RNA sequence: CAACGAACGAAAGGAGGUGAUCCAGUGUCUCAUUGUCAUCAGCCGUCAGUCUCGGCUUACCGGACCUGGACCGUCGCCUCCGGCGCGUCGUUCUAAGACGCGUCUGAGCCCCGAUUUAGGGACAGUUCCGCCGGACAUGUCGGUUCGGCAAUGCGAAGGGCCAUCCUCACGGGUGGCCCU
Numbered sequence: 001c002a003a004c005g006a007a008c009g010a011a012a013g014g015a016g017g018u019g020a021u022c023c024a025g026u027g028u029c030u031c032a033u034u035g036u037c038a039u040c041a042g043c044c045g046u047c048a049g050u051c052u053c054g055g056c057u058u059a060c061c062g063g064a065c066c067u068g069g070a071c072c073g074u075c076g077c078c079u080c081c082g083g084c085g086c087g088u089c090g091u092u093c094u095a096a097g098a099c100g101c102g103u104c105u106g107a108g109c110c111c112c113g114a115u116u117u118a119g120g121g122a123c124a125g126u127u128c129c130g131c132c133g134g135a136c137a138u139g140u141c142g143g144u145u146c147g148g149c150a151a152u153g154c155g156a157a158g159g160g161c162c163a164u165c166c167u168c169a170c171g172g173g174u175g176g177c178c179c180u
Base pairs, nucleotide, nucleotide: 016023017022031153032152033151034150035149036148037147044076045075047073049071050070051069077097079095098126099125101121103120104119105118106117107116108115131143132142133141134140157180158179159178160177161176162175163174164173165172166171
Dot-bracket structure: ...............((....)).......(((((((......((.(.(((.................))).).))(.(...............).)((.(.((((((......)))))))...))....((((.....))))...)))))))...((((((((((....))))))))))
Shown here is a 180-nucleotide RNA from Methylobacterium sp. GXS13, a member of the family "caulobacter sRNA CC2171". It is annotated as a small RNA. The match comes from Rfam's covariance-model search (76 bits). The organism belongs to Methylobacterium, within Bacteria. For this family Rfam cites "Small non-coding RNAs in Caulobacter crescentus" (Landt et al., Mol Microbiol, 2008).